[Rfam]
RNA sequence: CCGGGGCGCGAGCCCCGGCCGUACCGGAACCAGCUGACACCGGUACCUGACACGGCCGGUGCAG
Numbered sequence: 001c002c003g004g005g006g007c008g009c010g011a012g013c014c015c016c017g018g019c020c021g022u023a024c025c026g027g028a029a030c031c032a033g034c035u036g037a038c039a040c041c042g043g044u045a046c047c048u049g050a051c052a053c054g055g056c057c058g059g060u061g062c063a064g
Base pairs, nucleotide, nucleotide: 001027002026003025004024006022007021008020034064035063036062038061039060040059041058042057043056044055